[Rfam]
A member of the RNA family "PhotoRC-II RNA" from Bristolvirus rhodeisland, 98 nucleotides long.
RNA sequence: UAACAUGUUCAACACCUGCCGCUUGACCGAGACUAGGCAGGUCUACCAAUCCGUCUCUCAUAUCCUCGCCUGAGGGUGGCGAGGAAAUAGUAUCUCCA
Numbered sequence: 001u002a003a004c005a006u007g008u009u010c011a012a013c014a015c016c017u018g019c020c021g022c023u024u025g026a027c028c029g030a031g032a033c034u035a036g037g038c039a040g041g042u043c044u045a046c047c048a049a050u051c052c053g054u055c056u057c058u059c060a061u062a063u064c065c066u067c068g069c070c071u072g073a074g075g076g077u078g079g080c081g082a083g084g085a086a087a088u089a090g091u092a093u094c095u096c097c098a
Stems, first nucleotide, its partner, number of pairs: 015041005022036002029057005064084007